[Rfam]
RNA sequence: GGGAUCUGAUUGGAGGGAGACAGGGAUGAGGCAGAGCAUGGGAUGAGGCCAUCAACAAAUUUCCAUUUUCCCAUCCACUGCUUCAGUGCUAAUAUAUUUUCGGAAAGCGAGGGGCUUUGAGAGGUUUCAGGCUCGGCUGGUGUUGUGGCUCCCUCCCCUGCACUGCCUCUUCCCUGGCUCCAUCACAGAUUCACAGU
Dot-bracket structure: ................(((.((((((..((((((.(((.(.(....((((((............................................................................................)))))).....)).))).))))))..)))))).))).................
Numbered sequence: 001g002g003g004a005u006c007u008g009a010u011u012g013g014a015g016g017g018a019g020a021c022a023g024g025g026a027u028g029a030g031g032c033a034g035a036g037c038a039u040g041g042g043a044u045g046a047g048g049c050c051a052u053c054a055a056c057a058a059a060u061u062u063c064c065a066u067u068u069u070c071c072c073a074u075c076c077a078c079u080g081c082u083u084c085a086g087u088g089c090u091a092a093u094a095u096a097u098u099u100u101c102g103g104a105a106a107g108c109g110a111g112g113g114g115c116u117u118u119g120a121g122a123g124g125u126u127u128c129a130g131g132c133u134c135g136g137c138u139g140g141u142g143u144u145g146u147g148g149c150u151c152c153c154u155c156c157c158c159u160g161c162a163c164u165g166c167c168u169c170u171u172c173c174c175u176g177g178c179u180c181c182a183u184c185a186c187a188g189a190u191u192c193a194c195a196g197u
Stems, first nucleotide, its partner, number of pairs: 017180003021176006029168006036161003040157001042156001047150006
Shown here is a 197-nucleotide RNA from Paspalum vaginatum, a member of the family "MIR408 microRNA precursor family". The match comes from Rfam's covariance-model search (74 bits). On this family, see Mica et al., BMC Genomics 2009: "High throughput approaches reveal splicing of primary microRNA transcripts and tissue specific expression of mature microRNAs in Vitis vinifera".